This 82-nucleotide RNA from Streptomyces piniterrae belongs to the Rfam family "nrdJ RNA". The base pairs follow the family's consensus structure, which is taken from published work. Taxonomically the source falls in Streptomyces (Bacteria, Bacillati, Actinomycetota, Kitasatosporales).

RNA sequence: ACCUGGCCGGGGCUAGAGCAGGCGCCCCGGCUUCAGAAAGACAUACACCGUGCCACGGAAUGCGUGCGCACAUAUGGGCGUU
Numbered sequence: 001a002c003c004u005g006g007c008c009g010g011g012g013c014u015a016g017a018g019c020a021g022g023c024g025c026c027c028c029g030g031c032u033u034c035a036g037a038a039a040g041a042c043a044u045a046c047a048c049c050g051u052g053c054c055a056c057g058g059a060a061u062g063c064g065u066g067c068g069c070a071c072a073u074a075u076g077g078g079c080g081u082u
Stems, first nucleotide, its partner, number of pairs: 004035002006031008050071004055065002
It is annotated as a small RNA. It scores 52 bits against the family's covariance model.